[Rfam]
Nucleotides: 052
Base pairs, nucleotide, nucleotide: 016044017043018042019041020040021039022038025035026034027033028032
Number, partner (000 for none) and nucleotide at each position: 001000u002000a003000a004000c005000a006000g007000u008000u009000g010000g011000a012000u013000c014000g015000c016044c017043c018042c019041c020040c021039g022038u023000c024000a025035g026034c027033g028032a029000g030000u031000u032028u033027c034026g035025c036000c037000c038022a039021c040020g041019g042018g043017g044016g045000u046000a047000a048000g049000u050000g051000g052000g

Shown here is a 52-nucleotide sequence, a member of the family "ffh sRNA".
On this family, see Meyer et al., BMC Genomics 2009: "Identification of candidate structured RNAs in the marine organism 'Candidatus Pelagibacter ubique'".
Pairs were carried over by alignment from the consensus structure, which is taken from published work.
The sequence is in the family's curated seed alignment.